Shown here is a 102-nucleotide sequence, a member of the family "DUF3577 RNA".

[Rfam]
RNA sequence: CGAAUCGGAUAUGCGUGAGCAAUCACGCGAAACUCGCCUGUAAUCCCGGCAUCAUCGCGAAAGCGGUGUGGCGACUUCACUUCUGCCUUCAGGCAGCCUUCA
Numbered sequence: 001c002g003a004a005u006c007g008g009a010u011a012u013g014c015g016u017g018a019g020c021a022a023u024c025a026c027g028c029g030a031a032a033c034u035c036g037c038c039u040g041u042a043a044u045c046c047c048g049g050c051a052u053c054a055u056c057g058c059g060a061a062a063g064c065g066g067u068g069u070g071g072c073g074a075c076u077u078c079a080c081u082u083c084u085g086c087c088u089u090c091a092g093g094c095a096g097c098c099u100u101c102a
Stems, first nucleotide, its partner, number of pairs: 013028006034074005053068006083096004